[Rfam]
The family of this 221-nucleotide sequence is "RT-2 RNA". The sequence is in the family's curated seed alignment. It is annotated as a small RNA.
RNA sequence: CUUGGUCACAUGGAGUAGCCAUAGGUGAAAGACGACCAUAGCAAAAGGAGAGGUACUUCCCUGAGGAUCAAACCUCUAAAACUGCUUUUCGAUAUACCGACACGGACGCUUCUUGCAUGGCGCGGGAUGCAUCUUACCGCGUUUCAUGUGCCGGCAUAAAGCAGAUUAGACGAUGCCCUACAAUUCAUCUGUACGAGGAGCGAAUACUUUUAUGACAAGUC
Numbered sequence: 001c002u003u004g005g006u007c008a009c010a011u012g013g014a015g016u017a018g019c020c021a022u023a024g025g026u027g028a029a030a031g032a033c034g035a036c037c038a039u040a041g042c043a044a045a046a047g048g049a050g051a052g053g054u055a056c057u058u059c060c061c062u063g064a065g066g067a068u069c070a071a072a073c074c075u076c077u078a079a080a081a082c083u084g085c086u087u088u089u090c091g092a093u094a095u096a097c098c099g100a101c102a103c104g105g106a107c108g109c110u111u112c113u114u115g116c117a118u119g120g121c122g123c124g125g126g127a128u129g130c131a132u133c134u135u136a137c138c139g140c141g142u143u144u145c146a147u148g149u150g151c152c153g154g155c156a157u158a159a160a161g162c163a164g165a166u167u168a169g170a171c172g173a174u175g176c177c178c179u180a181c182a183a184u185u186c187a188u189c190u191g192u193a194c195g196a197g198g199a200g201c202g203a204a205u206a207c208u209u210u211u212a213u214g215a216c217a218a219g220u221c
Stems, first nucleotide, its partner, number of pairs: 004037004019025002063076004084201008093193001094157002097154003101150003108116002119143007161192005167187001168179002
Dot-bracket structure: ...((((...........((...))........)))).........................((((......)))).......((((((((.(((.(((.(((....((.....))..(((((((...........)))))))....))).))).))...(((((.(((........)).......)))))))))))))))....................